[Rfam]
RNA sequence: AUAGGAAAAGGUGGAAAAAUGAUGCGUCCACACACCCACAGGGUCAAAAGAGAUGAGAGAAUGGCGUCACUCUCUUUACUAU
Numbered sequence: 001a002u003a004g005g006a007a008a009a010g011g012u013g014g015a016a017a018a019a020u021g022a023u024g025c026g027u028c029c030a031c032a033c034a035c036c037c038a039c040a041g042g043g044u045c046a047a048a049a050g051a052g053a054u055g056a057g058a059g060a061a062u063g064g065c066g067u068c069a070c071u072c073u074c075u076u077u078a079c080u081a082u
Stems, first nucleotide, its partner, number of pairs: 001082004005077002008075001011031005021068005033050001034044004055074005